[Rfam]
RNA: L2-Alphaproteobacteria ribosomal protein leader
RNA sequence: GGGGAUCUUCGGAGCCCUUCAACCGCGCGAAAGCGACCUGAAAGCCGCAAGGACCGAGGGGCGUUAUGCGCAAGCUAACGGAAGACAGAAA
Numbered sequence: 001g002g003g004g005a006u007c008u009u010c011g012g013a014g015c016c017c018u019u020c021a022a023c024c025g026c027g028c029g030a031a032a033g034c035g036a037c038c039u040g041a042a043a044g045c046c047g048c049a050a051g052g053a054c055c056g057a058g059g060g061g062c063g064u065u066a067u068g069c070g071c072a073a074g075c076u077a078a079c080g081g082a083a084g085a086c087a088g089a090a091a
Base pairs, nucleotide, nucleotide: 001018002017003016004015006014008012025069026068027067029065033064034063